A member of the RNA family "Streptomyces-metK RNA" from Streptomyces sp. ISL-96, 119 nucleotides long. Taxonomically the source falls in Streptomyces (Bacteria, Bacillati, Actinomycetes, Streptomycetaceae). A search with the family's covariance model found it, with a score of 115 bits.
RNA sequence: GCGAGACACAUGGUCCGCCGACCGGAAGCGACCGAUAAACUGGUCCCGGACCGACGCCGGGCGCAGCUCCCGGUCCGUUCCAUCAAUGCUCAGCCAGCAGCCGCUGCAACCCCAGGGAG
Number, nucleotide and partner (000 for none) at each position: 001g000002c000003g000004a000005g000006a000007c000008a000009c000010a000011u000012g000013g000014u000015c000016c000017g000018c000019c000020g000021a000022c000023c000024g000025g000026a000027a000028g000029c000030g000031a000032c000033c000034g000035a000036u000037a000038a000039a000040c000041u000042g000043g000044u000045c000046c000047c000048g081049g080050a079051c000052c077053g076054a000055c000056g000057c000058c072059g071060g070061g069062c000063g000064c000065a000066g000067c000068u000069c061070c060071c059072g058073g000074u000075c000076c053077g052078u000079u050080c049081c048082a000083u000084c000085a000086a000087u000088g000089c000090u000091c000092a000093g000094c000095c106096a105097g104098c103099a000100g000101c000102c000103g098104c097105u096106g095107c000108a000109a000110c000111c000112c000113c000114a000115g000116g000117g000118a000119g000